This 82-nucleotide RNA from Dictyocaulus viviparus belongs to the Rfam family "mir-46/mir-47/mir-281 microRNA precursor family".
Lineage of the source: Eukaryota > Opisthokonta > Metazoa > Metastrongylidae > Dictyocaulus.
It scores 60 bits against the family's covariance model.
On this family, see Lau et al., Science 2001: "An abundant class of tiny RNAs with probable regulatory roles in Caenorhabditis elegans".
[Rfam]
RNA sequence: UUAACUCGUAUCUGAAGAGAGCCGUCUAUUGACAGUUCGCUAUGGACGCUGUCAUGGAGCAGCUCUCUUCAGAUGAACCAAU
Numbered sequence: 001u002u003a004a005c006u007c008g009u010a011u012c013u014g015a016a017g018a019g020a021g022c023c024g025u026c027u028a029u030u031g032a033c034a035g036u037u038c039g040c041u042a043u044g045g046a047c048g049c050u051g052u053c054a055u056g057g058a059g060c061a062g063c064u065c066u067c068u069u070c071a072g073a074u075g076a077a078c079c080a081a082u
Base pairs, nucleotide, nucleotide: 014070015069016068017067018066020064021063022062025058026057027056028055031053032052033051035049036048